The record is a 100-nucleotide sequence from Theobroma umbraticum, which matches "Small nucleolar RNA snoR8a" in Rfam. Rfam 15.1 lists 956 matches to the family in 245 species. A search with the family's covariance model found it, with a score of 44 bits.

RNA sequence: GAAGUUAACGAUGAUUAUAAAAAUAAUUUCUCAUUCUGAUUUGCUUAAUUCAAUUUGGGUAUGACAGAUCUCUUAUUACACUCAUAGAAUCUGAAAUACU
Numbered sequence: 001g002a003a004g005u006u007a008a009c010g011a012u013g014a015u016u017a018u019a020a021a022a023a024u025a026a027u028u029u030c031u032c033a034u035u036c037u038g039a040u041u042u043g044c045u046u047a048a049u050u051c052a053a054u055u056u057g058g059g060u061a062u063g064a065c066a067g068a069u070c071u072c073u074u075a076u077u078a079c080a081c082u083c084a085u086a087g088a089a090u091c092u093g094a095a096a097u098a099c100u
Base pairs, nucleotide, nucleotide: 003100004099006098007097